Makes More Granules Regulator RNA (mmgR): a 79-nucleotide RNA from Xanthobacter versatilis. From the family's description: SuhB later renamed mmgR (makes more granules regulator) was a putative non-coding RNA found multiple times in the Agrobacterium tumefaciens genome and related alpha-proteobacteria. The family is grouped with related families in Rfam's "suhB sRNA clan". Rfam classes the family as a small RNA.
RNA sequence: UGCCGCUGCCCUCCUUGGGCGUUUCCUCCCUAGACUUGGACCGCUCCGGCAACGUGAGCGGUCCCUUUCUUUUUGGGCC
Number, nucleotide and partner (000 for none) at each position: 001u000002g000003c000004c000005g000006c000007u000008g020009c019010c018011c017012u000013c000014c000015u000016u000017g011018g010019g009020c008021g000022u000023u000024u000025c000026c000027u000028c000029c000030c000031u000032a000033g000034a000035c000036u000037u000038g064039g063040a062041c061042c060043g059044c058045u057046c056047c000048g000049g000050c000051a000052a000053c000054g000055u000056g046057a045058g044059c043060g042061g041062u040063c039064c038065c000066u000067u000068u000069c000070u000071u000072u000073u000074u000075g000076g000077g000078c000079c000